Background: Rfam assigns this 587-nucleotide part of an RNA from Bifidobacterium stellenboschense to the family "Bacterial small subunit ribosomal RNA". A search with the family's covariance model found it, with a score of 1538 bits. The family's consensus secondary structure is taken from published work.

RNA sequence: UGACGGGGGCCCGCACAAGCGGCGGAGCAUGCGGAUUAAUUCGAUGCAACGCGAAGAACCUUACCUGGGCUUGACAUGUUCCCGACGACUCCAGAGAUGGGGUUUCCCUUCGGGGCGGGUUCACAGGUGGUGCAUGGUCGUCGUCAGCUCGUGUCGUGAGAUGUUGGGUUAAGUCCCGCAACGAGCGCAACCCUCGCCCCGUGUUGCCAGCAGUUCGGCUGGGGACUCACGGGGGACCGCCGGGGUCAACUCGGAGGAAGGUGGGGAUGACGUCAGAUCAUCAUGCCCCUUACGUCCAGGGCUUCACGCAUGCUACAAUGGCCGGUACAGCGGGAUGCGACAUGGCGACAUGGAGCGGAUCCCUGAAAACCGGUCUCAGUUCGGAUUGGAGUCUGCAACCCGACUCCAUGAAGGCGGAGUCGCUAGUAAUCGCGGAUCAGCAACGCCGCGGUGAAUGCGUUCCCGGGCCUUGUACACACCGCCCGUCAAGUCAUGAAAGUGGGCAGCACCCGAAGCCGGUGGCCUAACCCGUGAGGGGUGGAGCCGUCUAAGGUGAGGCUCGUGAUUGGGACUAAGUCGUAACAAGG
Number, nucleotide and partner (000 for none) at each position: 001u476002g475003a473004c472005g471006g000007g470008g469009g468010c467011c466012c465013g464014c000015a460016c459017a000018a000019g423020c422021g421022g420023c419024g316025g000026a314027g313028c312029a311030u310031g309032c308033g307034g305035a304036u000037u000038a000039a000040u055041u054042c053043g052044a000045u000046g000047c000048a000049a000050c000051g000052c043053g042054a041055a040056g000057a000058a000059c000060c000061u000062u000063a000064c300065c299066u298067g297068g296069g295070c294071u000072u000073g000074a000075c000076a000077u123078g122079u000080u000081c119082c118083c117084g116085a000086c000087g104088a103089c102090u101091c100092c099093a098094g000095a000096g000097a000098u093099g092100g091101g090102g089103u088104u087105u000106c115107c114108c113109u000110u000111c000112g000113g108114g107115g106116c084117g083118g082119g081120u000121u000122c078123a077124c000125a000126g289127g288128u000129g287130g286131u285132g284133c000134a000135u283136g282137g278138u277139c276140g274141u000142c272143g271144u000145c000146a000147g186148c185149u184150c183151g182152u181153g162154u161155c160156g000157u000158g000159a000160g155161a154162u153163g000164u000165u178166g177167g176168g175169u000170u000171a000172a000173g000174u000175c168176c167177c166178g165179c000180a000181a152182c151183g150184a149185g148186c147187g000188c000189a000190a000191c000192c266193c265194u264195c263196g000197c234198c233199c232200c231201g230202u229203g228204u000205u000206g000207c223208c222209a000210g000211c221212a220213g219214u000215u000216c000217g000218g000219c213220u212221g211222g208223g207224g000225a000226c000227u000228c203229a202230c201231g200232g199233g198234g197235g000236a000237c257238c256239g000240c254241c253242g252243g251244g250245g000246u000247c000248a000249a000250c244251u243252c242253g241254g240255a000256g238257g237258a000259a000260g000261g000262u000263g195264g194265g193266g192267a000268u000269g000270a000271c143272g142273u000274c140275a000276g139277a138278u137279c000280a000281u000282c136283a135284u132285g131286c130287c129288c127289c126290u000291u000292a000293c000294g070295u069296c068297c067298a066299g065300g064301g000302c000303u000304u035305c034306a000307c033308g032309c031310a030311u029312g028313c027314u026315a000316c024317a000318a000319u000320g375321g374322c373323c372324g371325g370326u369327a000328c000329a000330g000331c000332g363333g362334g361335a000336u000337g356338c355339g000340a000341c000342a351343u350344g349345g000346c000347g000348a000349c344350a343351u342352g000353g000354a000355g338356c337357g000358g000359a000360u000361c334362c333363c332364u000365g000366a000367a000368a000369a326370c325371c324372g323373g322374u321375c320376u000377c000378a000379g000380u000381u000382c413383g000384g000385a000386u000387u408388g407389g406390a405391g404392u403393c402394u000395g000396c000397a000398a000399c000400c000401c000402g393403a392404c391405u390406c389407c388408a387409u000410g000411a000412a000413g382414g000415c000416g000417g000418a000419g023420u022421c021422g020423c019424u000425a000426g000427u000428a000429a452430u451431c450432g449433c448434g447435g446436a000437u000438c000439a000440g000441c000442a000443a000444c000445g000446c435447c434448g433449c432450g431451g430452u429453g000454a000455a000456u000457g000458c000459g016460u015461u000462c000463c000464c013465g012466g011467g010468c009469c008470u007471u005472g004473u003474a000475c002476a001477c000478a000479c586480c000481g583482c000483c000484c579485g578486u000487c000488a000489a573490g572491u571492c570493a000494u568495g567496a566497a000498a000499g563500u562501g561502g560503g559504c558505a000506g000507c555508a554509c553510c552511c000512g000513a000514a000515g548516c000517c546518g545519g544520u543521g000522g000523c541524c540525u000526a000527a000528c537529c536530c000531g000532u000533g000534a000535g000536g529537g528538g000539u000540g524541g523542a000543g520544c519545c518546g517547u000548c515549u000550a000551a000552g510553g509554u508555g507556a000557g000558g504559c503560u502561c501562g500563u499564g000565a000566u496567u495568g494569g000570g492571a491572c490573u489574a000575a000576g000577u000578c485579g484580u000581a000582a000583c481584a000585a000586g479587g000